[Rfam]
RNA: glmS glucosamine-6-phosphate activated ribozyme aptamer
Organism: Listeria monocytogenes
RNA sequence: AAUUAAAUAGAAGCGCCAGAACUGAUUGGGACGAAAAUACUUGAAGGUGAAAUCCCUGAAAAGUAAACAGUCAGUUGACGAGGAGGAGAUUAAUCGAAGUUUCGGCGGGAGUCUCCCGGCUGUGCAUGCAGUCGUUAAGUCUUACUUACAAAUCACUUGGGUGACCAAGUGGACAGAGUAGUAAUGAAACAUGUUU
Numbered sequence: 001a002a003u004u005a006a007a008u009a010g011a012a013g014c015g016c017c018a019g020a021a022c023u024g025a026u027u028g029g030g031a032c033g034a035a036a037a038u039a040c041u042u043g044a045a046g047g048u049g050a051a052a053u054c055c056c057u058g059a060a061a062a063g064u065a066a067a068c069a070g071u072c073a074g075u076u077g078a079c080g081a082g083g084a085g086g087a088g089a090u091u092a093a094u095c096g097a098a099g100u101u102u103c104g105g106c107g108g109g110a111g112u113c114u115c116c117c118g119g120c121u122g123u124g125c126a127u128g129c130a131g132u133c134g135u136u137a138a139g140u141c142u143u144a145c146u147u148a149c150a151a152a153u154c155a156c157u158u159g160g161g162u163g164a165c166c167a168a169g170u171g172g173a174c175a176g177a178g179u180a181g182u183a184a185u186g187a188a189a190c191a192u193g194u195u196u
Stems, first nucleotide, its partner, number of pairs: 020076008085116005094105004117134006140186001142184005154171007